The family of this 128-nucleotide sequence from Pipra filicauda is "Small Cajal body specific RNA 4". The source organism's lineage runs through Eukaryota, Craniata, Sarcopterygii, Sauria and Pipra. Clan: SCARNA4 clan. A search with the family's covariance model found it, with a score of 64 bits. The family's RNA type in Rfam is small Cajal body RNA. The base pairs follow the family's consensus structure, which was predicted with RNAfold. For this family Rfam cites "Cajal body-specific small nuclear RNAs: a novel class of 2'-O-methylation and pseudouridylation guide RNAs" (Darzacq et al., EMBO J, 2002). Rfam links the family to the GO terms nucleolus, Cajal body and RNA processing. scaRNAs are a specific class of small nuclear RNAs which localise to the Cajal bodies and guide the modification of RNA polymerase II transcribed spliceosomal RNAs U1, U2, U4, U5 and U12. ACA26 belongs to the H/ACA box class of guide RNAs as it has the predicted hairpin-hinge-hairpin-tail structure, conserved H/ACA-box motifs and is found associated with GAR1.
[Rfam]
RNA sequence: GCUGGAGGACUAAAGAGACUGAGUCUGGAGAGUGAGACUCAGGGGACACUGGCCUCCUAAAAGCAAAGGGAUGGUGAGAGCAGUCCUGCCCCAGAGCAGCCCAGGGCUCACUGUGCCAUCUCACACCG
Dot-bracket structure: ..((((((..........(.((((((........)))))).)..........))))).)........(((........((.((((((....(......)...))))))..))......))).......